[Rfam]
RNA sequence: UUCUGUGAACUGUGGGGACCAUCUCCCCCUGCAGAUCCAGCAGCGGCAUGUGUCGCAGAAGAUGUAUUCAUUUUAAAGAUUAGAAGGAG
Numbered sequence: 001u002u003c004u005g006u007g008a009a010c011u012g013u014g015g016g017g018a019c020c021a022u023c024u025c026c027c028c029c030u031g032c033a034g035a036u037c038c039a040g041c042a043g044c045g046g047c048a049u050g051u052g053u054c055g056c057a058g059a060a061g062a063u064g065u066a067u068u069c070a071u072u073u074u075a076a077a078g079a080u081u082a083g084a085a086g087g088a089g
Stems, first nucleotide, its partner, number of pairs: 003040003007037002010034008
L20-Deltaproteobacteria ribosomal protein leader: an 89-nucleotide sequence.
Rfam's curators put it in the seed alignment.
The family's consensus secondary structure is taken from published work.